[Rfam]
RNA sequence: AAGAUGAUUGCAGGAGAGAAGUCUCUUGCGGACUCGCCGAAGGAGCAACGACCCCGGAAACUCUCAGGCAAAAGGACUGUAAUCAUUGU
Numbered sequence: 001a002a003g004a005u006g007a008u009u010g011c012a013g014g015a016g017a018g019a020a021g022u023c024u025c026u027u028g029c030g031g032a033c034u035c036g037c038c039g040a041a042g043g044a045g046c047a048a049c050g051a052c053c054c055c056g057g058a059a060a061c062u063c064u065c066a067g068g069c070a071a072a073a074g075g076a077c078u079g080u081a082a083u084c085a086u087u088g089u
Base pairs, nucleotide, nucleotide: 006084007083008082009081010080011079012078013077020034021033022032023031036069037068038067039065040064043063044062045061049056050055
This 89-nucleotide RNA sequence belongs to the Rfam family "Glycine riboswitch aptamer".
The pairing is the family consensus, mapped onto this sequence.
A search with the family's covariance model found it, with a score of 75 bits.